[Rfam]
RNA sequence: AAAAAGAGCUUCUGUCGUGAGUGGCCCACGUAGGGCAAUUCAGUUGCUCUGCGUGCGAAAUCGACAUCAAGAGAUUUUGGAAGCAUAAUUUUUUGGCACGCGGGCAGCUGGUGAUCGUUGGUCCUGGCGCCCAA
Numbered sequence: 001a002a003a004a005a006g007a008g009c010u011u012c013u014g015u016c017g018u019g020a021g022u023g024g025c026c027c028a029c030g031u032a033g034g035g036c037a038a039u040u041c042a043g044u045u046g047c048u049c050u051g052c053g054u055g056c057g058a059a060a061u062c063g064a065c066a067u068c069a070a071g072a073g074a075u076u077u078u079g080g081a082a083g084c085a086u087a088a089u090u091u092u093u094u095g096g097c098a099c100g101c102g103g104g105c106a107g108c109u110g111g112u113g114a115u116c117g118u119u120g121g122u123c124c125u126g127g128c129g130c131c132c133a134a
Stems, first nucleotide, its partner, number of pairs: 008084005014025004027055012056079007102132004107128005113123004
RNA: U11 spliceosomal RNA
Organism: Jaculus jaculus